[Rfam]
RNA sequence: GAUUUAUGAUGACAUGGGACCUUGUCUGAACACAAUGAUUUCAAAAAUUGAGCUUAGAGUGACUCUGAAAUC
Numbered sequence: 001g002a003u004u005u006a007u008g009a010u011g012a013c014a015u016g017g018g019a020c021c022u023u024g025u026c027u028g029a030a031c032a033c034a035a036u037g038a039u040u041u042c043a044a045a046a047a048u049u050g051a052g053c054u055u056a057g058a059g060u061g062a063c064u065c066u067g068a069a070a071u072c
Stems, first nucleotide, its partner, number of pairs: 001072004

Small nucleolar RNA SNORD107: a 72-nucleotide RNA from Rattus norvegicus. The base pairs follow the family's consensus structure, which was predicted with WAR. It is one of the family's seed sequences. Rfam classes the family as a C/D-box small nucleolar RNA. A reference for the family is Runte et al. (2001), "The IC-SNURF-SNRPN transcript serves as a host for multiple small nucleolar RNA species and as an antisense RNA for UBE3A", Hum Mol Genet. The source organism's lineage runs through Eukaryota, Opisthokonta, Craniata, Mammalia and Rattus.